Shown here is a 101-nucleotide RNA sequence from Aotus nancymaae, a member of the family "Y RNA".
Rfam's curators write: Y RNAs are components of the Ro ribonucleoprotein particle (Ro RNP), in association with Ro60 and La proteins. The Y RNAs and Ro60 and La proteins are well conserved, but the function of the Ro RNP is not known. In humans the RNA component can be one of four small RNAs -- hY1, hY3, hY4 and hY5.
It is annotated as a non-coding RNA gene.
The family's consensus secondary structure is taken from published work.
[Rfam]
RNA sequence: GCCUUGUCUAAGGGAAGUGGUGUUUACAACUAAUGAUCAUAACCAGUUACAGAUUUCUUUGUAUCUUCUGCACUCCCACUGCUUCACUUGACUAGUCUUAA
Dot-bracket structure: (.((.(((.((..(((((((.(......((.((........................)).))............))))))...))..))))).)).)....